[Rfam]
RNA sequence: AUAGUUUAAGGGUAAACCUGCCGAAAGACAGGGGCACAAAGCCGUGGGUCUAAGGCUUAAAAAGCUAUGACUGCCUGGCUGCAAUU
Numbered sequence: 001a002u003a004g005u006u007u008a009a010g011g012g013u014a015a016a017c018c019u020g021c022c023g024a025a026a027g028a029c030a031g032g033g034g035c036a037c038a039a040a041g042c043c044g045u046g047g048g049u050c051u052a053a054g055g056c057u058u059a060a061a062a063a064g065c066u067a068u069g070a071c072u073g074c075c076u077g078g079c080u081g082c083a084a085u086u
Stems, first nucleotide, its partner, number of pairs: 012037002017032004022027001040080004046075002048071003055065004